[Rfam]
RNA sequence: GCCAUUACAACAAUUAACACGAACCAUGUCAGGUCAGAAAUGAAGCAGCAUUAAGUAUCUUAAUUGUGUGUAAUGGCUUUU
Numbered sequence: 001g002c003c004a005u006u007a008c009a010a011c012a013a014u015u016a017a018c019a020c021g022a023a024c025c026a027u028g029u030c031a032g033g034u035c036a037g038a039a040a041u042g043a044a045g046c047a048g049c050a051u052u053a054a055g056u057a058u059c060u061u062a063a064u065u066g067u068g069u070g071u072a073a074u075g076g077c078u079u080u081u
Stems, first nucleotide, its partner, number of pairs: 001077007008068001010067006017058001019056002026051004034043003